[Rfam]
RNA sequence: GCUCAGGGGUGCGCAAGAACCUCGUGAGGCGCCAGCCCAAUCUUGCAUCCUUCCAAUUCCCUUACUUUCCGAGGAGGAUGCUUCAUG
Numbered sequence: 001g002c003u004c005a006g007g008g009g010u011g012c013g014c015a016a017g018a019a020c021c022u023c024g025u026g027a028g029g030c031g032c033c034a035g036c037c038c039a040a041u042c043u044u045g046c047a048u049c050c051u052u053c054c055a056a057u058u059c060c061c062u063u064a065c066u067u068u069c070c071g072a073g074g075a076g077g078a079u080g081c082u083u084c085a086u087g
Stems, first nucleotide, its partner, number of pairs: 006023005045081009

The family of this 87-nucleotide RNA from Ruegeria sp. TrichCH4B is "chrB-a RNA". The family has 163 seed sequences and 347 matches in Rfam 15.1. The family's RNA type in Rfam is cis-regulatory element.